[Rfam]
RNA: Small nucleolar RNA snoR74
Organism: Arabis nemorensis
RNA sequence: CAAAAAGCAGGGUUCUGUUUGCACAAUAACAGGCACUCACGUAAAUGUCAGGAAUAUCUAAUUGGUCAUCGUGAUUGGGUGAACCUAUGUUUCUUCUUAUAGCUAAUGGUUCAGUACAUGAUGGUACAUUU
Numbered sequence: 001c002a003a004a005a006a007g008c009a010g011g012g013u014u015c016u017g018u019u020u021g022c023a024c025a026a027u028a029a030c031a032g033g034c035a036c037u038c039a040c041g042u043a044a045a046u047g048u049c050a051g052g053a054a055u056a057u058c059u060a061a062u063u064g065g066u067c068a069u070c071g072u073g074a075u076u077g078g079g080u081g082a083a084c085c086u087a088u089g090u091u092u093c094u095u096c097u098u099a100u101a102g103c104u105a106a107u108g109g110u111u112c113a114g115u116a117c118a119u120g121a122u123g124g125u126a127c128a129u130u131u
Stems, first nucleotide, its partner, number of pairs: 005048001007046001011037002014033004065125009080113006